The family of this 131-nucleotide RNA sequence from Phyllostomus discolor is "Small nucleolar RNA SNORA24".
Lineage of the source: Eukaryota > Mammalia > Theria > Eutheria > Phyllostomus.
It scores 126 bits against the family's covariance model.
Rfam describes the family as follows. ACA24 is a member of the H/ACA class of snoRNA that guide the sites of modification of uridines to pseudouridines.

RNA sequence: GUCCACUUGUCUUUGGGACCUGUUGACUUUUGCAGUCUCCCCUCCUAGCCAUGGAAGAGCAUAUUUUCGUUUACUGGCAAAGCUUUCACCAUUUAAUUGGUAUCAGAUUCUGACUUGCACAAGUAACAUUC
Numbered sequence: 001g002u003c004c005a006c007u008u009g010u011c012u013u014u015g016g017g018a019c020c021u022g023u024u025g026a027c028u029u030u031u032g033c034a035g036u037c038u039c040c041c042c043u044c045c046u047a048g049c050c051a052u053g054g055a056a057g058a059g060c061a062u063a064u065u066u067u068c069g070u071u072u073a074c075u076g077g078c079a080a081a082g083c084u085u086u087c088a089c090c091a092u093u094u095a096a097u098u099g100g101u102a103u104c105a106g107a108u109u110c111u112g113a114c115u116u117g118c119a120c121a122a123g124u125a126a127c128a129u130u131c
Stems, first nucleotide, its partner, number of pairs: 002055004015041004020035004069127003075121002077118004083106002088101004